A member of the RNA family "mir-2763 microRNA precursor family" from Leptobrachium leishanense, 107 nucleotides long. Taxonomically the source falls in Leptobrachium (Eukaryota, Eumetazoa, Craniata, Sarcopterygii).
RNA sequence: AGCAAUAAAACUCACAGUAAUGUACGGUGUGUAUGAGCGUGAGUUUUAUUGCUGUGGAGCUCUGUGAUAUGCUCAUAUACACCGCACAUUACUGUGAGUUUAUUGCU
Numbered sequence: 001a002g003c004a005a006u007a008a009a010a011c012u013c014a015c016a017g018u019a020a021u022g023u024a025c026g027g028u029g030u031g032u033a034u035g036a037g038c039g040u041g042a043g044u045u046u047u048a049u050u051g052c053u054g055u056g057g058a059g060c061u062c063u064g065u066g067a068u069a070u071g072c073u074c075a076u077a078u079a080c081a082c083c084g085c086a087c088a089u090u091a092c093u094g095u096g097a098g099u100u101u102a103u104u105g106c107u
Stems, first nucleotide, its partner, number of pairs: 002106005008100002011098013025084005032079004

The base pairs follow the family's consensus structure, which was predicted with RNAalifold.